This 86-nucleotide sequence from Pseudomonas graminis belongs to the Rfam family "gyrA RNA".
[Rfam]
RNA sequence: ACGUGAGUUGGGUCCGGGCCUGAAAGGGGCUCAACGAGUCCGGCAGGCUCAGGAGGGUCAUGCCGGACGUCCUCAAGAGUGCGGAA
Number, nucleotide and partner (000 for none) at each position: 001a000002c000003g000004u000005g000006a000007g035008u034009u033010g032011g031012g030013u029014c028015c027016g000017g000018g000019c000020c000021u000022g000023a000024a000025a000026g000027g015028g014029g013030c012031u011032c010033a009034a008035c007036g071037a070038g068039u067040c066041c065042g064043g063044c062045a061046g059047g058048c057049u056050c055051a000052g000053g000054a000055g050056g049057g048058u047059c046060a000061u045062g044063c043064c042065g041066g040067a039068c038069g000070u037071c036072c000073u000074c000075a000076a000077g000078a000079g000080u000081g000082c000083g000084g000085a000086a000
Annotation:
A search with the family's covariance model found it, with a score of 64 bits. It is annotated as a cis-regulatory element.